c-di-GMP-I riboswitch aptamer: a 122-nucleotide RNA sequence from Thermincola carboxydiphila. The source organism's lineage runs through Bacteria, Bacillota, Eubacteriales, Thermincolaceae and Thermincola carboxydiphila.
RNA sequence: GACUGACAAAGGCAAACUUGUCGAAAGACAGUGACGCAAAGCUAUUGAUCUAAGGCACAGCAGCAGUUGGCAACCAUAUGAUUUUCCAACUGCCCGGUUGCUAUGACCGCAGGGCUGCCAAC
Numbered sequence: 001g002a003c004u005g006a007c008a009a010a011g012g013c014a015a016a017c018u019u020g021u022c023g024a025a026a027g028a029c030a031g032u033g034a035c036g037c038a039a040a041g042c043u044a045u046u047g048a049u050c051u052a053a054g055g056c057a058c059a060g061c062a063g064c065a066g067u068u069g070g071c072a073a074c075c076a077u078a079u080g081a082u083u084u085u086c087c088a089a090c091u092g093c094c095c096g097g098u099u100g101c102u103a104u105g106a107c108c109g110c111a112g113g114g115c116u117g118c119c120a121a122c
Stems, first nucleotide, its partner, number of pairs: 012037002018031005040116004045112003049106002055101003